RNA sequence: GGGUGCUUGAGGCUAUCUGUCUCAGGCAUGAACACCAAAGGCAGAUAGAUAAAAGCCCCAGGAGAUUAUUCAUCAACCUGAGGCCCCUAUAUGCUUUGACCACAUUGAGGUAGCCUCUUACGCGCCUAAAGGCGAGGAGAAGCAGCCGUG
Numbered sequence: 001g002g003g004u005g006c007u008u009g010a011g012g013c014u015a016u017c018u019g020u021c022u023c024a025g026g027c028a029u030g031a032a033c034a035c036c037a038a039a040g041g042c043a044g045a046u047a048g049a050u051a052a053a054a055g056c057c058c059c060a061g062g063a064g065a066u067u068a069u070u071c072a073u074c075a076a077c078c079u080g081a082g083g084c085c086c087c088u089a090u091a092u093g094c095u096u097u098g099a100c101c102a103c104a105u106u107g108a109g110g111u112a113g114c115c116u117c118u119u120a121c122g123c124g125c126c127u128a129a130a131g132g133c134g135a136g137g138a139g140a141a142g143c144a145g146c147c148g149u150g
Stems, first nucleotide, its partner, number of pairs: 001059003005056004011050001013048010026035001060079003064074003080117005086110003091105003121145001
A member of the RNA family "sok antitoxin (CssrC)" from Trabulsiella odontotermitis, 150 nucleotides long. On this family, see Kawano et al., Mol Microbiol 2007: "An antisense RNA controls synthesis of an SOS-induced toxin evolved from an antitoxin". Gene Ontology term of the family: mRNA binding.